[Rfam]
Nucleotides: 123
Base pairs, nucleotide, nucleotide: 006066008064010062012060013059014058015057017055018054020052021051022050023045024044025043026042027041028040029039067098068097069096070095072093073092074091076089078087079086103123104122105121106120107119108118109117110116
Number, partner (000 for none) and nucleotide at each position: 001000a002000u003000u004000c005000a006066c007000g008064u009000c010062u011000g012060u013059g014058a015057c016000u017055g018054u019000g020052a021051g022050u023045g024044u025043g026042a027041c028040u029039a030000a031000u032000c033000c034000u035000a036000a037000a038000u039029u040028a041027g042026u043025c044024a045023c046000u047000g048000u049000u050022g051021c052020u053000g054018a055017u056000u057015g058014u059013u060012g061000g062010g063000a064008a065000g066006g067098u068097g069096u070095a071000c072093g073092g074091a075000a076089a077000c078087c079086c080000g081000u082000c083000a084000g085000g086079g087078g088000a089076u090000u091074u092073c093072u094000u095070u096069a097068c098067a099000u100000u101000g102000g103123g104122g105121g106120c107119a108118u109117c110116u111000c112000u113000u114000g115000u116110a117109g118108g119107u120106g121105u122104c123103c
Background: This 123-nucleotide sequence from Calothrix sp. PCC 7507 belongs to the Rfam family "Nitrogen stress-induced RNA 9". For this family Rfam cites "Identification of Conserved and Potentially Regulatory Small RNAs in Heterocystous Cyanobacteria" (Brenes-Alvarez et al., Front Microbiol, 2016). Pairs were carried over by alignment from the consensus structure, which was predicted with RNAalifold. The match comes from Rfam's covariance-model search (98 bits). Taxonomically the source falls in Calothrix (Bacteria, Bacillati, Cyanobacteriota, Nostocales). Gene Ontology term of the family: heterocyst differentiation. It is annotated as a small RNA.